[Rfam]
RNA: Bacillaceae-1 RNA
Organism: Sporolactobacillus laevolacticus
RNA sequence: UACAGAGGAUCUUCGACUAACGACACUUACGUCCUGUGAGUAACGUCGAAGUCACUACAUCCUGUAGA
Number, nucleotide and partner (000 for none) at each position: 001u000002a000003c000004a000005g000006a000007g000008g000009a000010u000011c051012u050013u049014c048015g047016a046017c045018u000019a000020a000021c000022g000023a000024c000025a000026c040027u039028u038029a037030c036031g000032u000033c000034c000035u000036g030037u029038g028039a027040g026041u000042a000043a000044c000045g017046u016047c015048g014049a013050a012051g011052u000053c000054a000055c067056u066057a065058c064059a000060u000061c000062c000063u000064g058065u057066a056067g055068a000